[Rfam]
Record summary: The record is a 78-nucleotide RNA sequence from Kutzneria viridogrisea, which matches "SAH (S-adenosyl-L-homocysteine) riboswitch aptamer" in Rfam. Pairs were carried over by alignment from the consensus structure, which is taken from published work. It scores 40 bits against the family's covariance model. Its family is annotated with S-adenosylhomocysteine metabolic process and regulation of gene expression in the Gene Ontology.
RNA sequence: AGACCCGAGAGGCGCUGCGACGGACCACAUGUCCGCCACGCUCGGGUCUGCGUUCACCACUCAAGGGCGCCUCCCACA
Numbered sequence: 001a002g003a004c005c006c007g008a009g010a011g012g013c014g015c016u017g018c019g020a021c022g023g024a025c026c027a028c029a030u031g032u033c034c035g036c037c038a039c040g041c042u043c044g045g046g047u048c049u050g051c052g053u054u055c056a057c058c059a060c061u062c063a064a065g066g067g068c069g070c071c072u073c074c075c076a077c078a
Stems, first nucleotide, its partner, number of pairs: 002048007021035005